This 57-nucleotide RNA sequence belongs to the Rfam family "L31-Gammaproteobacteria ribosomal protein leader".

[Rfam]
RNA sequence: CACAUGGUGUCCUGCGCAGACGAGGCGACUGGAUAGCGAUGUGGCCUAACUCGAGGU
Numbered sequence: 001c002a003c004a005u006g007g008u009g010u011c012c013u014g015c016g017c018a019g020a021c022g023a024g025g026c027g028a029c030u031g032g033a034u035a036g037c038g039a040u041g042u043g044g045c046c047u048a049a050c051u052c053g054a055g056g057u
Stems, first nucleotide, its partner, number of pairs: 001043005007037002011032002014029001015027003
Notes:
Its Rfam clan is "Ribosomal Protein L31 Leader clan".